Source information
Rfam assigns this 83-nucleotide sequence from Kibdelosporangium phytohabitans to the family "ZMP/ZTP riboswitch aptamer (pfl RNA motif)".
RNA sequence: GGUUCGGGUCGUGACUGGCGUUCAGGUGGAGUACCACCGGGGAGCGGCUCCGCCGAGCACUGCCGCGCGCCUGGGCGAUUCCC
Numbered sequence: 001g002g003u004u005c006g007g008g009u010c011g012u013g014a015c016u017g018g019c020g021u022u023c024a025g026g027u028g029g030a031g032u033a034c035c036a037c038c039g040g041g042g043a044g045c046g047g048c049u050c051c052g053c054c055g056a057g058c059a060c061u062g063c064c065g066c067g068c069g070c071c072u073g074g075g076c077g078a079u080u081c082c083c
Base pairs, nucleotide, nucleotide: 004052006050007049008048009047010046011045012044015041016040017071018070019069020068021067026037027036028035029034061077062076063075064074
Dot-bracket structure: ...(.(((((((..(([[[[[....((((....))))..))..))))))).)........((((..]]]]]..))))......